[Rfam]
RNA sequence: UUACAAUUAAAGGAUAUUUCUUGCAGGCUCGCGCGAAACCGGAAAUGUCCCUUAAUUGUUUGGC
Numbered sequence: 001u002u003a004c005a006a007u008u009a010a011a012g013g014a015u016a017u018u019u020c021u022u023g024c025a026g027g028c029u030c031g032c033g034c035g036a037a038a039c040c041g042g043a044a045a046u047g048u049c050c051c052u053u054a055a056u057u058g059u060u061u062g063g064c
Stems, first nucleotide, its partner, number of pairs: 003059008012050010024035001
The record is a 64-nucleotide sequence from Clarias magur, which matches "mir-7552 microRNA precursor family" in Rfam. Pairs were carried over by alignment from the consensus structure, which was predicted with RNAalifold. The family has 4 seed sequences and 220 matches in Rfam 15.1.